Nucleotides: 079
Base pairs, nucleotide, nucleotide: 002079003078004077005076006074007073008072013030014029015028016027017026021064022063023062024061032048033043034042035041053071054070055069056068057067
Number, partner (000 for none) and nucleotide at each position: 001000a002079u003078a004077a005076a006074u007073u008072g009000a010000c011000g012000a013030g014029c015028a016027g017026g018000a019000a020000a021064g022063g023062c024061g025000c026017c027016c028015u029014g030013c031000g032048c033043u034042c035041c036000u037000a038000u039000a040000u041035g042034g043033a044000a045000c046000c047000u048032g049000a050000u051000a052000u053071g054070a055069u056068g057067g058000a059000u060000a061024c062023g063022c064021c065000g066000c067057c068056c069055a070054u071053c072008c073007a074006a075000u076005u077004u078003u079002a
A member of the RNA family "skipping-rope RNA", 79 nucleotides long. Rfam classes the family as a small RNA. The sequence is in the family's curated seed alignment.